[Rfam]
RNA sequence: GUCAGAUGAUGUGAAGUACAUGGCAGUAGCGCUCUGUGCAAAGAUGACCUUCAUCUAUCACCCUAUCACUGAUGGCU
Numbered sequence: 001g002u003c004a005g006a007u008g009a010u011g012u013g014a015a016g017u018a019c020a021u022g023g024c025a026g027u028a029g030c031g032c033u034c035u036g037u038g039c040a041a042a043g044a045u046g047a048c049c050u051u052c053a054u055c056u057a058u059c060a061c062c063c064u065a066u067c068a069c070u071g072a073u074g075g076c077u
Base pairs, nucleotide, nucleotide: 001076002075003074004073029039030038031037032036